[Rfam]
Record summary
This 131-nucleotide sequence from Betta splendens belongs to the Rfam family "Small nucleolar RNA SNORA44". A search with the family's covariance model found it, with a score of 67 bits. Rfam's curators write: ACA44 is a member of the H/ACA class of snoRNA that guide the sites of modification of uridines to pseudouridines. By type it is an H/ACA-box small nucleolar RNA. The organism belongs to Betta, within Eukaryota. The family's consensus secondary structure was predicted with PFOLD.
RNA sequence: AAGCAUGCUAUUCAAAGGACCUAGGCUUAUGUGUACCUUGGGUUCUUGAAGCUCAUGCAAGAAAAUGGGGUGGUCUUUGACUGCUGUGGUCUGUUUUGUGCCAUUGGCAGCCACUCAACUGCCCUACAUGG
Numbered sequence: 001a002a003g004c005a006u007g008c009u010a011u012u013c014a015a016a017g018g019a020c021c022u023a024g025g026c027u028u029a030u031g032u033g034u035a036c037c038u039u040g041g042g043u044u045c046u047u048g049a050a051g052c053u054c055a056u057g058c059a060a061g062a063a064a065a066u067g068g069g070g071u072g073g074u075c076u077u078u079g080a081c082u083g084c085u086g087u088g089g090u091c092u093g094u095u096u097u098g099u100g101c102c103a104u105u106g107g108c109a110g111c112c113a114c115u116c117a118a119c120u121g122c123c124c125u126a127c128a129u130g131g
Stems, first nucleotide, its partner, number of pairs: 012041002017037002019034002022031002068124006083111002086104004
Dot-bracket structure: ...........((...((((.((......)).)).))..))..........................((((((.........((.((((...........)))).....)).......)))))).......